[Rfam]
RNA sequence: CCGCCCGUCGCUACUACCGAUGGAUUAUUUAGUGAGGUCUUUGAAGGUGAACAUUUGCUAGUCCCUCGGGAUUACAUUUGAAUCGCUGAAGUUGACCGAACUUGAUGAUUUAGAGGAAGUAAAAGUCGUAACAAGGUUUCCGUAGGUGAACCUGCGGAAGGAUCAUUA
Numbered sequence: 001c002c003g004c005c006c007g008u009c010g011c012u013a014c015u016a017c018c019g020a021u022g023g024a025u026u027a028u029u030u031a032g033u034g035a036g037g038u039c040u041u042u043g044a045a046g047g048u049g050a051a052c053a054u055u056u057g058c059u060a061g062u063c064c065c066u067c068g069g070g071a072u073u074a075c076a077u078u079u080g081a082a083u084c085g086c087u088g089a090a091g092u093u094g095a096c097c098g099a100a101c102u103u104g105a106u107g108a109u110u111u112a113g114a115g116g117a118a119g120u121a122a123a124a125g126u127c128g129u130a131a132c133a134a135g136g137u138u139u140c141c142g143u144a145g146g147u148g149a150a151c152c153u154g155c156g157g158a159a160g161g162a163u164c165a166u167u168a
Stems, first nucleotide, its partner, number of pairs: 001135001003132001006128002009125001012121004017116002021112009031102003036097004042091001046087005052080002056076001059074004137160010

A member of the RNA family "Eukaryotic small subunit ribosomal RNA" from Aedes aegypti, 168 nucleotides of a longer RNA. It is one of the family's seed sequences. A reference for the family is Yusupov et al. (2001), "Crystal structure of the ribosome at 5.5 A resolution", Science. Rfam links the family to the GO terms ribosome and structural constituent of ribosome.